[Rfam]
RNA: Small nucleolar RNA SNORA75
Organism: Mastacembelus armatus
RNA sequence: CUCUUCUCGUGAGCACCGCUCUGUCAGACAAUGACAGUAAACGGAUUCGCAUGAGAAGUAGAGGAAACUCACAGUUAAACAGGCAACUGUCUUAGUGGUAGUUGCCCAUGUCUGAUGUGAAACAAAC
Numbered sequence: 001c002u003c004u005u006c007u008c009g010u011g012a013g014c015a016c017c018g019c020u021c022u023g024u025c026a027g028a029c030a031a032u033g034a035c036a037g038u039a040a041a042c043g044g045a046u047u048c049g050c051a052u053g054a055g056a057a058g059u060a061g062a063g064g065a066a067a068c069u070c071a072c073a074g075u076u077a078a079a080c081a082g083g084c085a086a087c088u089g090u091c092u093u094a095g096u097g098g099u100a101g102u103u104g105c106c107c108a109u110g111u112c113u114g115a116u117g118u119g120a121a122a123c124a125a126a127c
Base pairs, nucleotide, nucleotide: 003058004057005056006055007054008053013050014049016044017043021037022036023035024034025033069120070119071118072117073116084101086099087098088097089096